Annotation:
Shown here is a 254-nucleotide sequence from Halovulum marinum, a member of the family "HNH endonuclease-associated RNA and ORF (HEARO) RNA".

RNA sequence: GUCAGCUUCUCCCACCAAUCCUGCGGAUUGGAAGGAGCUUGCUUUGAAGAAGGGAGGAAGUUUCCAGGCUGACCAGAGUCAGCGGCAGAUGCCUUCGGGUUGAAGCCGCUACGUUGUCGCCAGGUCAAAGACCGACGUCGGGGUGCUUCACCAGCUCCGACCUCUCGAAGCCUCGAAUGCAGACAUGGGUCGGGAGACCCACGAAACGGUUCGAGGCGGAACGCCGGGCGGCAACUUUCUCGAGGUGAGACGGC
Numbered sequence: 001g002u003c004a005g006c007u008u009c010u011c012c013c014a015c016c017a018a019u020c021c022u023g024c025g026g027a028u029u030g031g032a033a034g035g036a037g038c039u040u041g042c043u044u045u046g047a048a049g050a051a052g053g054g055a056g057g058a059a060g061u062u063u064c065c066a067g068g069c070u071g072a073c074c075a076g077a078g079u080c081a082g083c084g085g086c087a088g089a090u091g092c093c094u095u096c097g098g099g100u101u102g103a104a105g106c107c108g109c110u111a112c113g114u115u116g117u118c119g120c121c122a123g124g125u126c127a128a129a130g131a132c133c134g135a136c137g138u139c140g141g142g143g144u145g146c147u148u149c150a151c152c153a154g155c156u157c158c159g160a161c162c163u164c165u166c167g168a169a170g171c172c173u174c175g176a177a178u179g180c181a182g183a184c185a186u187g188g189g190u191c192g193g194g195a196g197a198c199c200c201a202c203g204a205a206a207c208g209g210u211u212c213g214a215g216g217c218g219g220a221a222c223g224c225c226g227g228g229c230g231g232c233a234a235c236u237u238u239c240u241c242g243a244g245g246u247g248a249g250a251c252g253g254c
Stems, first nucleotide, its partner, number of pairs: 001073008010037001012034001015031007039052002076241003081110005113235009123225001132167001137161008147249006170217009186201006
Dot-bracket structure: ((((((((.(.(..(((((((...)))))))..)..).((..........)).............))))))))..(((..(((((....................)))))..(((((((((.(........(....((((((((..[[[[[[.)))))))).....)..(((((((((.......((((((....)))))).......))))))))).......).)))))))))...)))..]]]]]].....
Rfam 15.1 lists 952 matches to the family in 249 species. It scores 90 bits against the family's covariance model.